[Rfam]
RNA sequence: AUAUAAGCAAAAUUGAUUUUUUAGAUUCAUUCAUUUAAUGAUGUAUGUGGUUCAUAAUAUGGAUCACAUACAUCAUUAAAUGAAUGGAUCUAAGAAAUCAAUGUUGCUUAUAU
Numbered sequence: 001a002u003a004u005a006a007g008c009a010a011a012a013u014u015g016a017u018u019u020u021u022u023a024g025a026u027u028c029a030u031u032c033a034u035u036u037a038a039u040g041a042u043g044u045a046u047g048u049g050g051u052u053c054a055u056a057a058u059a060u061g062g063a064u065c066a067c068a069u070a071c072a073u074c075a076u077u078a079a080a081u082g083a084a085u086g087g088a089u090c091u092a093a094g095a096a097a098u099c100a101a102u103g104u105u106g107c108u109u110a111u112a113u
Stems, first nucleotide, its partner, number of pairs: 002112006009105002012102013026088018048066004
RNA: MIR2593 microRNA precursor family
Organism: Medicago truncatula